The record is a 115-nucleotide RNA sequence from Onchocerca volvulus, which matches "U5 spliceosomal RNA" in Rfam. The family's RNA type in Rfam is spliceosomal small nuclear RNA. A search with the family's covariance model found it, with a score of 75 bits. The family's consensus secondary structure is taken from published work. Taxonomically the source falls in Onchocerca (Eukaryota, Eumetazoa, Ecdysozoa, Onchocercidae). U5 RNA is a component of both types of known spliceosome.
RNA sequence: UUUGUCUUGCUCUCCUGCAUUUGACCGAGAAAAUCUUUCGCCUUUUACUAAAGAUUUCCGUGCAGGAGAGUAUUCAUGAUUGUACAAGCAUUUUUUGGAAGCCCUGAAAAGGGCA
Numbered sequence: 001u002u003u004g005u006c007u008u009g010c011u012c013u014c015c016u017g018c019a020u021u022u023g024a025c026c027g028a029g030a031a032a033a034u035c036u037u038u039c040g041c042c043u044u045u046u047a048c049u050a051a052a053g054a055u056u057u058c059c060g061u062g063c064a065g066g067a068g069a070g071u072a073u074u075c076a077u078g079a080u081u082g083u084a085c086a087a088g089c090a091u092u093u094u095u096u097g098g099a100a101g102c103c104c105u106g107a108a109a110a111g112g113g114c115a
Stems, first nucleotide, its partner, number of pairs: 004080003009071011031057008105115002